[Rfam]
RNA sequence: UGCAGCAGAAGAGGAGCGUUACCCAGGCAGCAAAAUUACGGAGCCCCACUCCUAGGUGAUUUUGUCAGGGGGAGUAACGCCGAGAUAGCAUCAAUUGGGGAUUGUUGUUAUCGGCCUUAAAGGUUGAAUCCUUUGGGCUGUCACCUAAUAGCCACGGUUUGGCUUAGGUGGAGAGCUUCUGAUCAC
Numbered sequence: 001u002g003c004a005g006c007a008g009a010a011g012a013g014g015a016g017c018g019u020u021a022c023c024c025a026g027g028c029a030g031c032a033a034a035a036u037u038a039c040g041g042a043g044c045c046c047c048a049c050u051c052c053u054a055g056g057u058g059a060u061u062u063u064g065u066c067a068g069g070g071g072g073a074g075u076a077a078c079g080c081c082g083a084g085a086u087a088g089c090a091u092c093a094a095u096u097g098g099g100g101a102u103u104g105u106u107g108u109u110a111u112c113g114g115c116c117u118u119a120a121a122g123g124u125u126g127a128a129u130c131c132u133u134u135g136g137g138c139u140g141u142c143a144c145c146u147a148a149u150a151g152c153c154a155c156g157g158u159u160u161g162g163c164u165u166a167g168g169u170g171g172a173g174a175g176c177u178u179c180u181g182a183u184c185a186c
Stems, first nucleotide, its partner, number of pairs: 006181006016080007024072001030065008084112007092104004113139004118135006141171007
The record is a 186-nucleotide RNA from Photobacterium damselae, which matches "Lysine riboswitch aptamer" in Rfam. Rfam describes the family as follows. Riboswitches are metabolite binding domains within certain messenger RNAs that serve as precision sensors for their corresponding targets. Its family is annotated with lysine biosynthetic process in the Gene Ontology.